[Rfam]
RNA sequence: ACAAAGUGGUGAUCGAAGUUUAAUUUUAUUCAAGUGAUAAAAUUAAGUUUAGGAAAGUCCAUGUUAGCACAUGUUCGUAGGAAAGCAUGUAGUGUUUGUGCUUAAGGAAAAAAUAACUUAAGGUGUUUGAUUUUUUUCAAGCAACGGCUUUUUAAAUUCUAAAGACAUAUUAUAUAUUGUUUAUAAUAAAGUCUAUGAAAAUAAAAAAUAAAGUGCCACAGAGACGAGUUAAUUAGAAAUAAUUAAGUGAAACGCGGUAAACCCCUCAAGCUAACAAUCCAAAAUUAUGGUAGGAGCAUAUAAAAAUCAGUUUUUCCUAAUGUAAAUUUUUAUAAUUGGUUUUUAUACUAUUUUUAGAAAUAAAAGUAGAGAUAAAUGAUCACACUUGUUUUUGAUAAAAAAACAAGAACAGAACAUGGCUUAUUCGU
Numbered sequence: 001a002c003a004a005a006g007u008g009g010u011g012a013u014c015g016a017a018g019u020u021u022a023a024u025u026u027u028a029u030u031c032a033a034g035u036g037a038u039a040a041a042a043u044u045a046a047g048u049u050u051a052g053g054a055a056a057g058u059c060c061a062u063g064u065u066a067g068c069a070c071a072u073g074u075u076c077g078u079a080g081g082a083a084a085g086c087a088u089g090u091a092g093u094g095u096u097u098g099u100g101c102u103u104a105a106g107g108a109a110a111a112a113a114u115a116a117c118u119u120a121a122g123g124u125g126u127u128u129g130a131u132u133u134u135u136u137u138c139a140a141g142c143a144a145c146g147g148c149u150u151u152u153u154a155a156a157u158u159c160u161a162a163a164g165a166c167a168u169a170u171u172a173u174a175u176a177u178u179g180u181u182u183a184u185a186a187u188a189a190a191g192u193c194u195a196u197g198a199a200a201a202u203a204a205a206a207a208a209u210a211a212a213g214u215g216c217c218a219c220a221g222a223g224a225c226g227a228g229u230u231a232a233u234u235a236g237a238a239a240u241a242a243u244u245a246a247g248u249g250a251a252a253c254g255c256g257g258u259a260a261a262c263c264c265c266u267c268a269a270g271c272u273a274a275c276a277a278u279c280c281a282a283a284a285u286u287a288u289g290g291u292a293g294g295a296g297c298a299u300a301u302a303a304a305a306a307u308c309a310g311u312u313u314u315u316c317c318u319a320a321u322g323u324a325a326a327u328u329u330u331u332a333u334a335a336u337u338g339g340u341u342u343u344u345a346u347a348c349u350a351u352u353u354u355u356a357g358a359a360a361u362a363a364a365a366g367u368a369g370a371g372a373u374a375a376a377u378g379a380u381c382a383c384a385c386u387u388g389u390u391u392u393u394g395a396u397a398a399a400a401a402a403a404c405a406a407g408a409a410c411a412g413a414a415c416a417u418g419g420c421u422u423a424u425u426c427g428u
Stems, first nucleotide, its partner, number of pairs: 004428001006426001009383006016050015055422003059419005064274005069090006096269003100265001101122006123145001124143006146264002149207004157199003163194003213262002215258003229246007278295003299347014348369009385407009
Shown here is a 428-nucleotide sequence from Candidatus Phytoplasma ziziphi, a member of the family "Bacterial RNase P class B". It scores 174 bits against the family's covariance model.